[Rfam]
RNA sequence: CCCAGCAGUUGUCAGCCCUCCAGGCUCACGUGAUGGGCUGCAGGGCUGAUGCUGCACCGUUGGAAGAGCCAGUGUUGAGGUUUGGCUCCGAUCACUGUUUUGGUGCUGGGCAGAAUACCUUUGGACAAUGUUUUCCACCUCCAAGAGUGGAAAGCCUCCUCCAGAGGAGUUGGUCCUAAUCUGAGUAUAAACAAU
Numbered sequence: 001c002c003c004a005g006c007a008g009u010u011g012u013c014a015g016c017c018c019u020c021c022a023g024g025c026u027c028a029c030g031u032g033a034u035g036g037g038c039u040g041c042a043g044g045g046c047u048g049a050u051g052c053u054g055c056a057c058c059g060u061u062g063g064a065a066g067a068g069c070c071a072g073u074g075u076u077g078a079g080g081u082u083u084g085g086c087u088c089c090g091a092u093c094a095c096u097g098u099u100u101u102g103g104u105g106c107u108g109g110g111c112a113g114a115a116u117a118c119c120u121u122u123g124g125a126c127a128a129u130g131u132u133u134u135c136c137a138c139c140u141c142c143a144a145g146a147g148u149g150g151a152a153a154g155c156c157u158c159c160u161c162c163a164g165a166g167g168a169g170u171u172g173g174u175c176c177u178a179a180u181c182u183g184a185g186u187a188u189a190a191a192c193a194a195u
Stems, first nucleotide, its partner, number of pairs: 002063005008057002011055002015046005021040003025036001072131005077121005082114002085111003090106001093105004133190002137186002140183001149176003154171001156169004
Small nucleolar RNA SNORA74: a 195-nucleotide RNA sequence from Otolemur garnettii.
The family's consensus secondary structure was predicted with PFOLD.
Rfam's curators write: U19 belongs to the H/ACA class of snoRNAs. snoRNAs bind a number of proteins (including dyskerin, Gar1p and Nop10p in the case of the H/ACA class) to form snoRNP complexes.
By type it is an H/ACA-box small nucleolar RNA.
Rfam links the family to the GO terms nucleolus and RNA processing.
The family is grouped with related families in Rfam's "SNORA74 clan".
Lineage of the source: Eukaryota > Eumetazoa > Bilateria > Teleostomi > Otolemur.